[Rfam]
RNA: U2 spliceosomal RNA
RNA sequence: UUCGCUUCUCGGGCUCUUGGUUCAGAUCGGGUGUGGUGUCUGUUGUUAUCAGUUCAAUGUCUGGUAUGGCCUGGAUGGGAGGAGCUCGUAUUGAGGGGAUUUUUGGUGUCGGGGGUUGGGGGCGGAGCUCGCUCGGCUCCGCGCGUGGUGCCGGGAUUGCAGCGCCCGCGGGAACGGUGCAGCCGAA
Numbered sequence: 001u002u003c004g005c006u007u008c009u010c011g012g013g014c015u016c017u018u019g020g021u022u023c024a025g026a027u028c029g030g031g032u033g034u035g036g037u038g039u040c041u042g043u044u045g046u047u048a049u050c051a052g053u054u055c056a057a058u059g060u061c062u063g064g065u066a067u068g069g070c071c072u073g074g075a076u077g078g079g080a081g082g083a084g085c086u087c088g089u090a091u092u093g094a095g096g097g098g099a100u101u102u103u104u105g106g107u108g109u110c111g112g113g114g115g116u117u118g119g120g121g122g123c124g125g126a127g128c129u130c131g132c133u134c135g136g137c138u139c140c141g142c143g144c145g146u147g148g149u150g151c152c153g154g155g156a157u158u159g160c161a162g163c164g165c166c167c168g169c170g171g172g173a174a175c176g177g178u179g180c181a182g183c184c185g186a187a
Base pairs, nucleotide, nucleotide: 007026008025009024011022012021014019047066048065049064050063051062052061070082071081072080112140113139114138115137116136117135118134119133127132143180144179145178146177148175151171152170153169155167
Dot-bracket structure: ......(((.((.(....).)).)))....................((((((........))))))...(((.......))).............................((((((((.......(....)))))))))..((((.(..(((.(...........).)))...).)))).......